MIR7486 microRNA precursor family: an 87-nucleotide RNA sequence from Gossypium mustelinum.
[Rfam]
RNA sequence: CACGUCAACGCGAGAUGCUGACGUGGCAGCAAAUCACGUCCUUGAGGAAGCGAUUUGUUUCCAUGUCAACAUCUCGCGCUGAUGUGG
Numbered sequence: 001c002a003c004g005u006c007a008a009c010g011c012g013a014g015a016u017g018c019u020g021a022c023g024u025g026g027c028a029g030c031a032a033a034u035c036a037c038g039u040c041c042u043u044g045a046g047g048a049a050g051c052g053a054u055u056u057g058u059u060u061c062c063a064u065g066u067c068a069a070c071a072u073c074u075c076g077c078g079c080u081g082a083u084g085u086g087g
Stems, first nucleotide, its partner, number of pairs: 001086007009078009019068003023064004028059008037050001040047002
Source information:
The family has 9 seed sequences and 10,132 matches in Rfam 15.1.